The record is a 66-nucleotide RNA from Clostridium saccharoperbutylacetonicum, which matches "DUF3800-VIII RNA" in Rfam. Rfam's curators put it in the seed alignment. By type it is a small RNA. About the family: Bacteroidetes, Cyanobacteria, Firmicutes, Planctomycetes (1 example), Proteobacteria, Tenericutes (1 example).
RNA sequence: GAUACCUUUUAAAGUUGAAGUCUUAAGUUUAUACUUGAGAGAUUUAUGUAGACUUUAAGAGGUAUC
Numbered sequence: 001g002a003u004a005c006c007u008u009u010u011a012a013a014g015u016u017g018a019a020g021u022c023u024u025a026a027g028u029u030u031a032u033a034c035u036u037g038a039g040a041g042a043u044u045u046a047u048g049u050a051g052a053c054u055u056u057a058a059g060a061g062g063u064a065u066c
Stems, first nucleotide, its partner, number of pairs: 001066016021040008
Taxonomically the source falls in Clostridium saccharoperbutylacetonicum N1-4 (Bacteria, Bacillati, Clostridia, Clostridium).